A member of the RNA family "Glycine riboswitch aptamer" from Microbacterium sp. cf046, 107 nucleotides long. The match comes from Rfam's covariance-model search (58 bits). The source organism's lineage runs through Bacteria, Bacillati, Actinomycetota, Microbacteriaceae and Microbacterium. About the family: This family represents the bacterial glycine riboswitch.

[Rfam]
RNA sequence: AUAACCCGGACGGGAGAGCCUCGGCAGCGCGUGUGAUCACGCAGCCGGGCACCGAAGGAGCAAGCCUCCCCGCCAAUCUCUCAGGUAAUGCGUACCGCCCGGGCUCG
Numbered sequence: 001a002u003a004a005c006c007c008g009g010a011c012g013g014g015a016g017a018g019c020c021u022c023g024g025c026a027g028c029g030c031g032u033g034u035g036a037u038c039a040c041g042c043a044g045c046c047g048g049g050c051a052c053c054g055a056a057g058g059a060g061c062a063a064g065c066c067u068c069c070c071c072g073c074c075a076a077u078c079u080c081u082c083a084g085g086u087a088a089u090g091c092g093u094a095c096c097g098c099c100c101g102g103g104c105u106c107g
Stems, first nucleotide, its partner, number of pairs: 006102004011097003020049006051086003054082002058080003064073002